The family of this 84-nucleotide RNA sequence from Aquibacillus salsiterrae is "c-di-GMP-I riboswitch aptamer". The source organism's lineage runs through Bacteria, Bacillati, Caryophanales, Bacillaceae and Aquibacillus. Pairs were carried over by alignment from the consensus structure, which is taken from published work. Rfam's curators write: GEMM was predicted in a large-scale screen for bacterial structured RNA regulatory elements.
[Rfam]
RNA sequence: GUUGAAUAAUGGCAAACUACGAAAGGUAAAGGGCGCAAAGCUACAGGUCUAAGGCUUUUAAGCUAAGAUGGCUGGGUUGCCACA
Numbered sequence: 001g002u003u004g005a006a007u008a009a010u011g012g013c014a015a016a017c018u019a020c021g022a023a024a025g026g027u028a029a030a031g032g033g034c035g036c037a038a039a040g041c042u043a044c045a046g047g048u049c050u051a052a053g054g055c056u057u058u059u060a061a062g063c064u065a066a067g068a069u070g071g072c073u074g075g076g077u078u079g080c081c082a083c084a
Base pairs, nucleotide, nucleotide: 012036013035017031018030019027020026039078040077041076042075044074045073046072047069048068049067054063055062056061